[Rfam]
RNA sequence: CCAGAAACAAUAUCCUGAUGCUGAUGAGUGAACACUUAAAGCUCCAGCAUCAGUGAUUUUGUUACUGG
Numbered sequence: 001c002c003a004g005a006a007a008c009a010a011u012a013u014c015c016u017g018a019u020g021c022u023g024a025u026g027a028g029u030g031a032a033c034a035c036u037u038a039a040a041g042c043u044c045c046a047g048c049a050u051c052a053g054u055g056a057u058u059u060u061g062u063u064a065c066u067g068g
Base pairs, nucleotide, nucleotide: 006063007062008061009060010059012057013056014055015053016052017051018050019049020048021047022046023045
A member of the RNA family "mir-338 microRNA precursor family" from Eptatretus burgeri, 68 nucleotides long. A search with the family's covariance model found it, with a score of 71 bits. Lineage of the source: Eukaryota > Opisthokonta > Eumetazoa > Myxinidae > Eptatretus. On this family, see Stark et al., PLoS One 2010: "Characterization of the Melanoma miRNAome by Deep Sequencing".